Shown here is an 83-nucleotide RNA from Xenopus tropicalis, a member of the family "Small nucleolar RNA SNORD121A". The family's RNA type in Rfam is C/D-box small nucleolar RNA. The family's consensus secondary structure was predicted with WAR. The match comes from Rfam's covariance-model search (51 bits). Lineage of the source: Eukaryota > Deuterostomia > Dipnotetrapodomorpha > Amphibia > Silurana.

RNA sequence: AAGGGAAAGACCAUGAUGUGAGAGUUCCAAGCACAUAUCUGAAGUGAAUGUGUUGACACAUUUUGUCACUGAGUCUCUUCUGC
Number, nucleotide and partner (000 for none) at each position: 001a000002a000003g081004g080005g079006a078007a000008a076009g075010a074011c073012c000013a000014u000015g000016a000017u000018g000019u000020g000021a000022g000023a000024g000025u000026u000027c000028c000029a000030a000031g000032c000033a000034c000035a000036u000037a000038u000039c000040u000041g000042a000043a000044g000045u000046g000047a000048a000049u000050g000051u000052g000053u000054u000055g000056a000057c000058a000059c000060a000061u000062u000063u000064u000065g000066u000067c000068a000069c000070u000071g000072a000073g011074u010075c009076u008077c000078u006079u005080c004081u003082g000083c000